[Rfam]
RNA: Small nucleolar RNA SNORD18
Organism: Vitis rotundifolia
RNA sequence: GAGAUAUGAUGAGUACUUUUUUGGUCCGUGUUUCUGAUUUCACCGUGACCGAUAAACCUUACCAAACUCUGAUCUC
Numbered sequence: 001g002a003g004a005u006a007u008g009a010u011g012a013g014u015a016c017u018u019u020u021u022u023g024g025u026c027c028g029u030g031u032u033u034c035u036g037a038u039u040u041c042a043c044c045g046u047g048a049c050c051g052a053u054a055a056a057c058c059u060u061a062c063c064a065a066a067c068u069c070u071g072a073u074c075u076c
Stems, first nucleotide, its partner, number of pairs: 001076004